[Rfam]
RNA sequence: UCUGUAAAGGGCAAACCGCUCGAAAGAGCGGGACGCAAAGCCACUGGCCUACGUUCCGAGCCCCCUCGGAAUAGGGUCGCAGAGCUGCCAGGC
Numbered sequence: 001u002c003u004g005u006a007a008a009g010g011g012c013a014a015a016c017c018g019c020u021c022g023a024a025a026g027a028g029c030g031g032g033a034c035g036c037a038a039a040g041c042c043a044c045u046g047g048c049c050u051a052c053g054u055u056c057c058g059a060g061c062c063c064c065c066u067c068g069g070a071a072u073a074g075g076g077u078c079g080c081a082g083a084g085c086u087g088c089c090a091g092g093c
Base pairs, nucleotide, nucleotide: 003090004089011036012035016031017030018029019028020027021026034079039086040085041084044082045081046080047077048076049075
This 93-nucleotide sequence from Desulfacinum hydrothermale belongs to the Rfam family "c-di-GMP-I-GGC riboswitch aptamer". It scores 67 bits against the family's covariance model. The family's consensus secondary structure is taken from published work.